[Rfam]
RNA: Small nucleolar RNA SNORD10
Organism: Candidula unifasciata
Nucleotides: 137
Base pairs, nucleotide, nucleotide: 001137002136003135004134044100045099046098047097048096051093052092
Number, partner (000 for none) and nucleotide at each position: 001137g002136u003135a004134a005000a006000a007000u008000g009000a010000u011000g012000a013000a014000a015000c016000c017000u018000c019000a020000u021000g022000c023000g024000u025000g026000u027000c028000a029000u030000c031000u032000g033000a034000c035000g036000u037000c038000u039000u040000g041000c042000u043000u044100g045099g046098u047097c048096a049000u050000u051093g052092g053000g054000u055000u056000g057000a058000c059000a060000c061000u062000g063000u064000g065000g066000u067000u068000g069000a070000g071000u072000u073000u074000u075000u076000c077000u078000g079000c080000c081000a082000c083000a084000g085000u086000g087000a088000a089000u090000a091000u092052c093051c094000c095000u096048u097047g098046g099045c100044c101000g102000a103000u104000g105000a106000g107000g108000g109000c110000a111000g112000a113000g114000u115000g116000a117000u118000c119000u120000a121000u122000u123000u124000u125000g126000g127000u128000a129000g130000c131000u132000g133000a134004u135003u136002a137001c